A member of the RNA family "Bacterial large subunit ribosomal RNA" from Bdellovibrio bacteriovorus, 447 nucleotides of a longer RNA.

RNA sequence: CUCCCCGAAAUAUAUUUAGGUAUAGCGUCAGGUAAAAAAUAUCAUGGAGGUAGAGCACUGAAUGGGCUAGGGGUCUUUACCGGAUUACCAAACCCAAAUAAACUCCGAAUGCCAUUGAUAUGUUCCCUGGCAGGCAGACUCAGGGUGAUAAGGUCAUGAGUCGAGAGGGAAAGAGCCCAGACCAACAGCUAAGGUCCCUAAAUGCACGCUCAGUGGAGAACGUUGUGGAGUUACUUUGACAACUAGGAGGUUGGCUUAGAAGCAGCAAUCCUUUAAAGAAAGCGUAAUAGCUCACUAGUCUAGUGACUCUGCGCGGAAGAUACAACGGGGCUAAGCGUGUUACCGAAGCUUUGGAUUAAGAUAUUUUAUAUUUUAGUGGUAGGGGAGCGUUCUAGUGUAGGAUGAAGGUUGACCGGUAGGACAGCUGGACGAACUAGAAGUGAUCAU
Numbered sequence: 001c002u003c004c005c006c007g008a009a010a011u012a013u014a015u016u017u018a019g020g021u022a023u024a025g026c027g028u029c030a031g032g033u034a035a036a037a038a039a040u041a042u043c044a045u046g047g048a049g050g051u052a053g054a055g056c057a058c059u060g061a062a063u064g065g066g067c068u069a070g071g072g073g074u075c076u077u078u079a080c081c082g083g084a085u086u087a088c089c090a091a092a093c094c095c096a097a098a099u100a101a102a103c104u105c106c107g108a109a110u111g112c113c114a115u116u117g118a119u120a121u122g123u124u125c126c127c128u129g130g131c132a133g134g135c136a137g138a139c140u141c142a143g144g145g146u147g148a149u150a151a152g153g154u155c156a157u158g159a160g161u162c163g164a165g166a167g168g169g170a171a172a173g174a175g176c177c178c179a180g181a182c183c184a185a186c187a188g189c190u191a192a193g194g195u196c197c198c199u200a201a202a203u204g205c206a207c208g209c210u211c212a213g214u215g216g217a218g219a220a221c222g223u224u225g226u227g228g229a230g231u232u233a234c235u236u237u238g239a240c241a242a243c244u245a246g247g248a249g250g251u252u253g254g255c256u257u258a259g260a261a262g263c264a265g266c267a268a269u270c271c272u273u274u275a276a277a278g279a280a281a282g283c284g285u286a287a288u289a290g291c292u293c294a295c296u297a298g299u300c301u302a303g304u305g306a307c308u309c310u311g312c313g314c315g316g317a318a319g320a321u322a323c324a325a326c327g328g329g330g331c332u333a334a335g336c337g338u339g340u341u342a343c344c345g346a347a348g349c350u351u352u353g354g355a356u357u358a359a360g361a362u363a364u365u366u367u368a369u370a371u372u373u374u375a376g377u378g379g380u381a382g383g384g385g386a387g388c389g390u391u392c393u394a395g396u397g398u399a400g401g402a403u404g405a406a407g408g409u410u411g412a413c414c415g416g417u418a419g420g421a422c423a424g425c426u427g428g429a430c431g432a433a434c435u436a437g438a439a440g441u442g443a444u445c446a447u
Stems, first nucleotide, its partner, number of pairs: 001387006011024005026133001027131006038124001039121005044115004053106001054104002059100002063096004070089002072086005137162006144155003167178003182354004187350003193344003202341001204340006221315003225312010242299005248272003254266002273277001278293001282291002355377008388442001390439007398432001400430001407426005413420002
Dot-bracket structure: ((((((....(((((....))))).(((((((.....((((((((((.....(((...((..((((...(((((((.....))))).))...))))..))..)).).....)))).)))))..).)))))).)...((((((.(((......))).))))))....(((......)))...((((.(((...(((......(.((((((...........(((.((((((((((.......(((((.(((...((.........))...)))(...)(...((......)).).)))))...)))))))))))))...................))))))))))...)))))))((((((((.......))))))))....))))))(.(((((((.(.(......(((((.((....)).)))))...).))))))))..).....
Rfam's curators put it in the seed alignment.